[Rfam]
RNA sequence: UCUUCAGUGAGGUAUAUCCUUACCUGUUACUUCAGAAAUGAAGUUGCAGAAAAUGAUGAAUGGAGGCAGCAUGAGGAAUGAUUAUAUGUCCUCUGUCAUGUUGGGAACAGCAACACCCUUCAUGACCCAUUCUGAU
Numbered sequence: 001u002c003u004u005c006a007g008u009g010a011g012g013u014a015u016a017u018c019c020u021u022a023c024c025u026g027u028u029a030c031u032u033c034a035g036a037a038a039u040g041a042a043g044u045u046g047c048a049g050a051a052a053a054u055g056a057u058g059a060a061u062g063g064a065g066g067c068a069g070c071a072u073g074a075g076g077a078a079u080g081a082u083u084a085u086a087u088g089u090c091c092u093c094u095g096u097c098a099u100g101u102u103g104g105g106a107a108c109a110g111c112a113a114c115a116c117c118c119u120u121c122a123u124g125a126c127c128c129a130u131u132c133u134g135a136u
Base pairs, nucleotide, nucleotide: 024049025048026047028046029044030043031042032041033040073093074092076090077089079084097124098123099122100121103118104117105116